[Rfam]
RNA sequence: ACUAGAAAUUAGACAUUACCUAAAGACAGUGGCUGCAAGAAAUUGCUUAAUUCGCUACCGAGGGGAAAUUCAUCUUUUUCCGCAAGUCUUUGGUGAUGAACCAAAGCUUUUUUAGUUCAUUA
Numbered sequence: 001a002c003u004a005g006a007a008a009u010u011a012g013a014c015a016u017u018a019c020c021u022a023a024a025g026a027c028a029g030u031g032g033c034u035g036c037a038a039g040a041a042a043u044u045g046c047u048u049a050a051u052u053c054g055c056u057a058c059c060g061a062g063g064g065g066a067a068a069u070u071c072a073u074c075u076u077u078u079u080c081c082g083c084a085a086g087u088c089u090u091u092g093g094u095g096a097u098g099a100a101c102c103a104a105a106g107c108u109u110u111u112u113u114a115g116u117u118c119a120u121u122a
Stems, first nucleotide, its partner, number of pairs: 029058005035046003088106007
RNA: Ribosomal protein L10 leader
Organism: Saccharimonas aalborgensis